This 73-nucleotide RNA sequence from Sarcophilus harrisii belongs to the Rfam family "mir-8/mir-141/mir-200 microRNA precursor family". The family has 164 seed sequences and 2,669 matches in Rfam 15.1. The family is grouped with related families in Rfam's "mir-8 microRNA precursor clan". Rfam's curators put it in the seed alignment.
RNA sequence: GGGGCCAUCUUCCAGUGCAGUGUUGGAUCGUGUAAUCGUGAAGCUUCUAACACUGUCUGGUAAAGAUGCCCCC
Numbered sequence: 001g002g003g004g005c006c007a008u009c010u011u012c013c014a015g016u017g018c019a020g021u022g023u024u025g026g027a028u029c030g031u032g033u034a035a036u037c038g039u040g041a042a043g044c045u046u047c048u049a050a051c052a053c054u055g056u057c058u059g060g061u062a063a064a065g066a067u068g069c070c071c072c073c
Base pairs, nucleotide, nucleotide: 002072003071004070006068007067008066009065010063011062012060013059015058017056018055019054020053021052022051023050024049025048026047027046